[Rfam]
RNA sequence: CCUCCUUUUCUUGGUGGGGACUGGGCUUGUGGUCUGGCUCUCUGUAAUGUACGGAGGAAGAGGGAAAGGGCUCUGGCCCCCUUGGCGUCAUGUCUUCUGUGCUGAUGGCUUCCCAUUCGCUGGUUCUAUCCUCAAGCGCUGAGACACUG
Numbered sequence: 001c002c003u004c005c006u007u008u009u010c011u012u013g014g015u016g017g018g019g020a021c022u023g024g025g026c027u028u029g030u031g032g033u034c035u036g037g038c039u040c041u042c043u044g045u046a047a048u049g050u051a052c053g054g055a056g057g058a059a060g061a062g063g064g065a066a067a068g069g070g071c072u073c074u075g076g077c078c079c080c081c082u083u084g085g086c087g088u089c090a091u092g093u094c095u096u097c098u099g100u101g102c103u104g105a106u107g108g109c110u111u112c113c114c115a116u117u118c119g120c121u122g123g124u125u126c127u128a129u130c131c132u133c134a135a136g137c138g139c140u141g142a143g144a145c146a147c148u149g
Base pairs, nucleotide, nucleotide: 001057002056003055004054005053015044016043017042018041019040020039022037024035025034083141084140085139086138087137088136102123103122104121106119107118108117

The record is a 149-nucleotide RNA from Callithrix jacchus, which matches "Small nucleolar RNA SNORA57" in Rfam. The family's consensus secondary structure was predicted with PFOLD. Rfam links the family to the GO terms nucleolus and RNA processing. A search with the family's covariance model found it, with a score of 133 bits. About the family: U99 belongs to the H/ACA class of snoRNAs which are thought to guide the sites of modification of uridines to pseudouridines, the target for this family is unknown. On this family, see Vitali et al., Nucleic Acids Res 2003: "Identification of 13 novel human modification guide RNAs". The organism belongs to Callithrix, within Eukaryota.